Description:
A member of the RNA family "Glycine riboswitch aptamer" from Pseudoduganella armeniaca, 121 nucleotides long. NCBI's taxonomy places the organism under Bacteria, Pseudomonadati, Pseudomonadota, Oxalobacteraceae, Pseudoduganella.
RNA sequence: GGCCAAAACUCUGGAGAGCGGCAAGCACGUUGCAACAGCGUGAGAUUGCCCACCGAAGGGGCGUGCGGUGCCGGUAUCACCGGCCCGCUAUCUCUCAGGUACCGAGGACAGAGGGGUGACG
Numbered sequence: 001g002g003c004c005a006a007a008a009c010u011c012u013g014g015a016g017a018g019c020g021g022c023a024a025g026c027a028c029g030u031u032g033c034a035a036c037a038g039c040g041u042g043a044g045a046u047u048g049c050c051c052a053c054c055g056a057a058g059g060g061g062c063g064u065g066c067g068g069u070g071c072c073g074g075u076a077u078c079a080c081c082g083g084c085c086c087g088c089u090a091u092c093u094c095u096c097a098g099g100u101a102c103c104g105a106g107g108a109c110a111g112a113g114g115g116g117u118g119a120c121g
Base pairs, nucleotide, nucleotide: 009113010112011111012110013109020050021049022048023047052100053099054098055096056095059094060093061092065088066087067086068085